[Rfam]
RNA sequence: UCCAGUUAAUGAGGACUUGUACUAAAAACCCAGAAUGGGAUGGACAAGUCUGAUGUGUCCUGGA
Numbered sequence: 001u002c003c004a005g006u007u008a009a010u011g012a013g014g015a016c017u018u019g020u021a022c023u024a025a026a027a028a029c030c031c032a033g034a035a036u037g038g039g040a041u042g043g044a045c046a047a048g049u050c051u052g053a054u055g056u057g058u059c060c061u062g063g064a
Base pairs, nucleotide, nucleotide: 001064002063003062004061005060014050015049016048017047018046019045020044022042029039030038031037
A member of the RNA family "Selenocysteine insertion sequence 1" from Synaphobranchus kaupii, 64 nucleotides long. The family's consensus secondary structure is taken from published work. NCBI's taxonomy places the organism under Eukaryota, Opisthokonta, Elopocephala, Anguilliformes, Synaphobranchus. The family's RNA type in Rfam is cis-regulatory element. The match comes from Rfam's covariance-model search (35 bits).